Rfam assigns this 45-nucleotide RNA from Gallionella capsiferriformans to the family "Guanidine-II riboswitch aptamer (mini-ykkC)". The match comes from Rfam's covariance-model search (34 bits).
[Rfam]
RNA sequence: GCGUCCGGACGACCGGAUGCAUGACAACCAUGCAGGACGACCUGC
Numbered sequence: 001g002c003g004u005c006c007g008g009a010c011g012a013c014c015g016g017a018u019g020c021a022u023g024a025c026a027a028c029c030a031u032g033c034a035g036g037a038c039g040a041c042c043u044g045c
Stems, first nucleotide, its partner, number of pairs: 001020008032045005